[Rfam]
RNA sequence: AAGAACGCCGCGGAAAACCUCCAGGCGGCAUAAAUCCCACUUCCGGUUCGUGACCACGGAUGUACUGGCACGGAUUGUCGAGGUGAACGGAGAGGUCGGGCUAGCGCCCGGCCUUUUUGCUA
Numbered sequence: 001a002a003g004a005a006c007g008c009c010g011c012g013g014a015a016a017a018c019c020u021c022c023a024g025g026c027g028g029c030a031u032a033a034a035u036c037c038c039a040c041u042u043c044c045g046g047u048u049c050g051u052g053a054c055c056a057c058g059g060a061u062g063u064a065c066u067g068g069c070a071c072g073g074a075u076u077g078u079c080g081a082g083g084u085g086a087a088c089g090g091a092g093a094g095g096u097c098g099g100g101c102u103a104g105c106g107c108c109c110g111g112c113c114u115u116u117u118u119g120c121u122a
Base pairs, nucleotide, nucleotide: 006027007026008025009024038085039084040083041082042081045076046075047074048073051070052069054068055067056066086121088119089118090117091116092115093114094113095112096111097110098109099108101106